RNA sequence: UUUGGCAUUGGGCUUAUUGCGUAAGAUGCCAUUACCGACCGCAUGCAACAAGUGAGUCUUACCAAGGCCGGUGCCACCGUA
Numbered sequence: 001u002u003u004g005g006c007a008u009u010g011g012g013c014u015u016a017u018u019g020c021g022u023a024a025g026a027u028g029c030c031a032u033u034a035c036c037g038a039c040c041g042c043a044u045g046c047a048a049c050a051a052g053u054g055a056g057u058c059u060u061a062c063c064a065a066g067g068c069c070g071g072u073g074c075c076a077c078c079g080u081a
Base pairs, nucleotide, nucleotide: 005042006041009038011036012035016032018031019030021029022028052077053076054075056074057073061072062071063070

Description
Shown here is an 81-nucleotide RNA from Thalassotalea sp. HSM 43, a member of the family "antisense RNA of dnaA mRNA". It scores 56 bits against the family's covariance model. A reference for the family is Dadzie et al. (2013), "Identification and characterization of a cis-encoded antisense RNA associated with the replication process of Salmonella enterica serovar Typhi", PLoS One.